RNA sequence: AUGGCAUGAUGAGGACACUUCCUAAGCAUCUCCUUGUAGCGCUACCAAGCCUCACACAAAGAUUCUCCUGAUUGUUGCGCAAAUUGAGUAAGAGCAUUCCUGAUUGC
Numbered sequence: 001a002u003g004g005c006a007u008g009a010u011g012a013g014g015a016c017a018c019u020u021c022c023u024a025a026g027c028a029u030c031u032c033c034u035u036g037u038a039g040c041g042c043u044a045c046c047a048a049g050c051c052u053c054a055c056a057c058a059a060a061g062a063u064u065c066u067c068c069u070g071a072u073u074g075u076u077g078c079g080c081a082a083a084u085u086g087a088g089u090a091a092g093a094g095c096a097u098u099c100c101u102g103a104u105u106g107c
Stems, first nucleotide, its partner, number of pairs: 003105002005102002057074002
This 107-nucleotide RNA sequence from Apium graveolens belongs to the Rfam family "Plant small nucleolar RNA R71". The base pairs follow the family's consensus structure, which was predicted with PFOLD. The family's RNA type in Rfam is C/D-box small nucleolar RNA. For this family Rfam cites "Plant snoRNAs: functional evolution and new modes of gene expression" (Brown et al., Trends Plant Sci, 2003). A search with the family's covariance model found it, with a score of 56 bits.